Notes: The record is a 128-nucleotide RNA sequence from Cebus imitator, which matches "Y RNA" in Rfam. For this family Rfam cites "Caenorhabditis elegans embryos contain only one major species of Ro RNP" (Van Horn et al., RNA, 1995). Lineage of the source: Eukaryota > Metazoa > Eumetazoa > Chordata > Cebus.

RNA sequence: GGCUGGUCUAAAGGUAGUUAUUCUCAGCUGAUUGUUUACAGUUAGUUAGAUUGUUCACAGUUAGUUACACAUCAAACUCCUUGUUCAACUCUUUCCUCCUUCUCACUACUACACUUGACUACUCUUUA
Numbered sequence: 001g002g003c004u005g006g007u008c009u010a011a012a013g014g015u016a017g018u019u020a021u022u023c024u025c026a027g028c029u030g031a032u033u034g035u036u037u038a039c040a041g042u043u044a045g046u047u048a049g050a051u052u053g054u055u056c057a058c059a060g061u062u063a064g065u066u067a068c069a070c071a072u073c074a075a076a077c078u079c080c081u082u083g084u085u086c087a088a089c090u091c092u093u094u095c096c097u098c099c100u101u102c103u104c105a106c107u108a109c110u111a112c113a114c115u116u117g118a119c120u121a122c123u124c125u126u127u128a
Stems, first nucleotide, its partner, number of pairs: 001124002004121005010116002014112002016107003020103001026090002030086002